[Rfam]
RNA sequence: AGCACUAUAUUUAAACCUAUGAUGAGAUUUUCCUCAUUCUUGGUUACGCUGUAGUGCAAAAGAAUUCCUGGCUCUUUCUGUUGCACAGCUGAUAUGUGACAUUCAGUUGUUGCAUUGUGGAGUUAAGGGACAUGA
Numbered sequence: 001a002g003c004a005c006u007a008u009a010u011u012u013a014a015a016c017c018u019a020u021g022a023u024g025a026g027a028u029u030u031u032c033c034u035c036a037u038u039c040u041u042g043g044u045u046a047c048g049c050u051g052u053a054g055u056g057c058a059a060a061a062g063a064a065u066u067c068c069u070g071g072c073u074c075u076u077u078c079u080g081u082u083g084c085a086c087a088g089c090u091g092a093u094a095u096g097u098g099a100c101a102u103u104c105a106g107u108u109g110u111u112g113c114a115u116u117g118u119g120g121a122g123u124u125a126a127g128g129g130a131c132a133u134g135a
Base pairs, nucleotide, nucleotide: 002057003056004055005054006053007052008051009050014045015044016043017042021039022037023036024035025034026033065130066129067128068127069126070124071123072122073121074120075119079117080116083113084112085111086109087108088107089106091104092103
RNA: Small nucleolar RNA SNORA46